[Rfam]
A member of the RNA family "mraW RNA" from Propionibacterium australiense, 108 nucleotides long. The organism belongs to Propionibacterium, within Bacteria. The family has 45 seed sequences and 851 matches in Rfam 15.1.
RNA sequence: CGCUGACUGCGGCAUGCGGCUUCGGCCCGGGCCGAUCCCCUGGCACACCUUCCCCGGUGCCAGGUGAGCCCGGCUCGGGUUGAAACCAGAUGCCGCAGUUGCGCUGCC
Dot-bracket structure: .........((((((..((.((((((((((((((.((.((((((((..........)))))))).))...)))))))))))))).))..)))))).............